[Rfam]
RNA sequence: CGCGUGCUCCGGGGUCGGUGCAAUUCCGAGCCGGCGGUGACAGUCCGCGACCCGCACGUCCCAGGACGUGCGGUUGAACCGGUGGGAUUCCGGUACCGACGGUGAAAGUCCGGAUGGGAGGUGCACGCG
Number, nucleotide and partner (000 for none) at each position: 001c000002g000003c127004g126005u125006g124007c123008u000009c121010c120011g000012g000013g000014g000015u000016c028017g027018g026019u000020g000021c000022a000023a000024u000025u000026c018027c017028g016029a000030g109031c108032c098033g097034g048035c047036g046037g045038u000039g000040a000041c000042a000043g096044u095045c037046c036047g035048c034049g000050a000051c000052c073053c072054g000055c000056a000057c000058g000059u000060c000061c000062c000063a000064g000065g000066a000067c000068g000069u000070g000071c000072g053073g052074u000075u000076g000077a000078a094079c093080c092081g091082g090083u000084g000085g000086g000087a000088u000089u000090c082091c081092g080093g079094u078095a044096c043097c033098g032099a000100c112101g111102g110103u000104g000105a000106a000107a000108g031109u030110c102111c101112g100113g000114a000115u000116g000117g000118g000119a000120g010121g009122u000123g007124c006125a005126c004127g003128c000129g000
FMN riboswitch aptamer (RFN element): a 129-nucleotide RNA sequence from Aeromicrobium sp. IC_218. Taxonomically the source falls in Aeromicrobium (Bacteria, Bacillati, Propionibacteriales, Nocardioidaceae).